RNA sequence: UCCCCCGGACGACCGGGAUUCGACUUUAAUUAACGCGGGACGACCUGC
Numbered sequence: 001u002c003c004c005c006c007g008g009a010c011g012a013c014c015g016g017g018a019u020u021c022g023a024c025u026u027u028a029a030u031u032a033a034c035g036c037g038g039g040a041c042g043a044c045c046u047g048c
Base pairs, nucleotide, nucleotide: 004017005016006015007014008013035048036047037046038045039044

Shown here is a 48-nucleotide RNA sequence from Alteromonadaceae bacterium Bs31, a member of the family "Guanidine-II riboswitch aptamer (mini-ykkC)". It scores 34 bits against the family's covariance model. Taxonomically the source falls in Alteromonadaceae (Bacteria, Pseudomonadati, Pseudomonadota, Alteromonadales). A reference for the family is Sherlock et al. (2017), "Biochemical Validation of a Second Guanidine Riboswitch Class in Bacteria", Biochemistry.